[Rfam]
RNA sequence: AUAAAAGCUAUGAUCGUGUAAAGUAGAGAACCAUUUUCUAUCAGAGAGAGAAAAUCACCGGCUGAAAGUUUUCUUUAGUUCAGAUGGGGAUCGAAUUUCCCACGGGAGCUGUAUUUCUGAAAUAAGUAGGAAGUACCGUAGACUGUACGUUACACAGACUUGAGUGUCCGCAUAUGAUGUGCGGGAAACAGGGUGGUACCGCGAACAACAUCGUCCCUUGU
Numbered sequence: 001a002u003a004a005a006a007g008c009u010a011u012g013a014u015c016g017u018g019u020a021a022a023g024u025a026g027a028g029a030a031c032c033a034u035u036u037u038c039u040a041u042c043a044g045a046g047a048g049a050g051a052a053a054a055u056c057a058c059c060g061g062c063u064g065a066a067a068g069u070u071u072u073c074u075u076u077a078g079u080u081c082a083g084a085u086g087g088g089g090a091u092c093g094a095a096u097u098u099c100c101c102a103c104g105g106g107a108g109c110u111g112u113a114u115u116u117c118u119g120a121a122a123u124a125a126g127u128a129g130g131a132a133g134u135a136c137c138g139u140a141g142a143c144u145g146u147a148c149g150u151u152a153c154a155c156a157g158a159c160u161u162g163a164g165u166g167u168c169c170g171c172a173u174a175u176g177a178u179g180u181g182c183g184g185g186a187a188a189c190a191g192g193g194u195g196g197u198a199c200c201g202c203g204a205a206c207a208a209c210a211u212c213g214u215c216c217c218u219u220g221u
Base pairs, nucleotide, nucleotide: 007109008108015104016103017102018101026092027091031087040079041078050073051072052071053070054069055068112135113134114133115132116131117130118129137149138148139147167185168184169183170182171181172180173179190218191217192216193215201214202213203212204211